Shown here is a 28-nucleotide RNA sequence from Papaver somniferum, a member of the family "CRISPR RNA direct repeat element". A search with the family's covariance model found it, with a score of 36 bits. Taxonomically the source falls in Papaver (Eukaryota, Streptophyta, Tracheophyta, Papaveraceae).
RNA sequence: CUUUAAUACUAUCUAGUAAGUCUAAAAG
Numbered sequence: 001c002u003u004u005a006a007u008a009c010u011a012u013c014u015a016g017u018a019a020g021u022c023u024a025a026a027a028g
Stems, first nucleotide, its partner, number of pairs: 007018004
The family has 3 seed sequences and 24 matches in Rfam 15.1. Pairs were carried over by alignment from the consensus structure, which was predicted with WAR.